[Rfam]
The record is a 102-nucleotide RNA from Saccharibacillus brassicae, which matches "Purine riboswitch aptamer" in Rfam. The source organism's lineage runs through Bacteria, Bacillati, Bacilli, Caryophanales and Saccharibacillus.
RNA sequence: AUCGACAACAGCAACAGCGUUCGUAUAAUUCCGGGAAUGGGCCCGGGAGUCUCUACGUGAUCACCGUAAAUGAUCGCUCUACGAAACGGGAGGAAGCGCCUU
Numbered sequence: 001a002u003c004g005a006c007a008a009c010a011g012c013a014a015c016a017g018c019g020u021u022c023g024u025a026u027a028a029u030u031c032c033g034g035g036a037a038u039g040g041g042c043c044c045g046g047g048a049g050u051c052u053c054u055a056c057g058u059g060a061u062c063a064c065c066g067u068a069a070a071u072g073a074u075c076g077c078u079c080u081a082c083g084a085a086a087c088g089g090g091a092g093g094a095a096g097c098g099c100c101u102u
Base pairs, nucleotide, nucleotide: 018088019087020086021085022083023082024081025080029048030047031046032045033044034043035042057077058076059075060074061073062072063071